[Rfam]
RNA: transfer-messenger RNA
RNA sequence: GGGGAUGUAAAGGUUUCGACGGGGACUCUGAAGUAUGAGUAGCGAGUAGAGGCGCACGCCCUCUAUAAAACGUGACACUUUUAAAAAUAAACGCUGAAGAUAAUUUAGCAUUUGCUGCUUAAUUAAGCAGCCGUCUUGCCUUUGAGUACCACGGCAAAGGUAAAGGCGUCGAUUAGUGGUGAACGAUUUAUCCCAGCGGCUUCGUAAGAUAAAUUGUAUUAGGAGCUACUGAACCAGAUAGCCUGUUUGUCGGCGAUCAGGGGAGGGAAUGUUAAAAGAUAAACUGCACUCGGAGAGACUCAUAUGAAUCGGUUUUCGGACGCGGGUUCGAUUCCCGCCAUCUCCACCA
Number, nucleotide and partner (000 for none) at each position: 001g345002g344003g343004g342005a341006u340007g339008u000009a000010a000011a000012g000013g000014u000015u000016u000017c000018g000019a000020c318021g317022g316023g315024g314025a313026c312027u311028c000029u000030g000031a000032a000033g305034u304035a303036u302037g301038a300039g299040u298041a000042g000043c292044g291045a290046g289047u288048a064049g063050a062051g061052g060053c000054g000055c074056a073057c072058g071059c000060c052061c051062u050063c049064u048065a000066u000067a000068a000069a000070a000071c058072g057073u056074g055075a000076c000077a000078c000079u000080u000081u000082u000083a000084a000085a000086a000087a000088u000089a000090a000091a000092c000093g000094c000095u000096g000097a000098a000099g000100a000101u000102a000103a000104u000105u000106u000107a000108g000109c000110a000111u000112u000113u000114g131115c130116u129117g128118c127119u000120u000121a000122a000123u000124u000125a000126a000127g118128c117129a116130g115131c114132c168133g167134u166135c165136u164137u163138g000139c160140c159141u158142u157143u156144g155145a000146g000147u181148a180149c179150c178151a177152c176153g000154g000155c144156a143157a142158a141159g140160g139161u000162a000163a137164a136165g135166g134167c133168g132169u000170c000171g000172a000173u000174u000175a000176g152177u151178g150179g149180u148181g147182a000183a217184c216185g215186a214187u213188u212189u211190a210191u209192c000193c000194c000195a000196g000197c000198g227199g226200c225201u224202u223203c222204g000205u000206a000207a000208g000209a191210u190211a189212a188213a187214u186215u185216g184217u183218a000219u000220u000221a000222g203223g202224a201225g200226c199227u198228a000229c266230u265231g000232a000233a000234c261235c260236a000237g258238a257239u000240a000241g254242c253243c252244u000245g284246u283247u282248u281249g000250u277251c000252g243253g242254c241255g000256a000257u238258c237259a000260g235261g234262g000263g000264a000265g230266g229267g000268a000269a000270u000271g000272u000273u000274a000275a000276a000277a250278g000279a000280u000281a248282a247283a246284c245285u000286g000287c000288a047289c046290u045291c044292g043293g000294a000295g000296a000297g000298a040299c039300u038301c037302a036303u035304a034305u033306g000307a000308a000309u000310c000311g027312g026313u025314u024315u023316u022317c021318g020319g000320a000321c000322g338323c337324g336325g335326g334327u000328u000329c000330g000331a000332u000333u000334c326335c325336c324337g323338c322339c007340a006341u005342c004343u003344c002345c001346a000347c000348c000349a000